The family of this 77-nucleotide RNA sequence from Capitella teleta is "mir-1992 microRNA precursor family".
The organism belongs to Capitella, within Eukaryota.
[Rfam]
RNA sequence: CUGUGUCUCGUCGGUGGAUGGUUGCUGGUAGUACCAUUGCCAGCCUAUCAGCAGUUGUACCACUGAUGUGACACGCC
Numbered sequence: 001c002u003g004u005g006u007c008u009c010g011u012c013g014g015u016g017g018a019u020g021g022u023u024g025c026u027g028g029u030a031g032u033a034c035c036a037u038u039g040c041c042a043g044c045c046u047a048u049c050a051g052c053a054g055u056u057g058u059a060c061c062a063c064u065g066a067u068g069u070g071a072c073a074c075g076c077c
Base pairs, nucleotide, nucleotide: 002075003074004073005072006071007070009068010067011066012065013064014063015062016061017060018058019057020056021055022054023053024052025051026050027049028048029047030046031044032043
Overview:
Rfam links the family to the GO terms RISC complex and miRNA-mediated post-transcriptional gene silencing.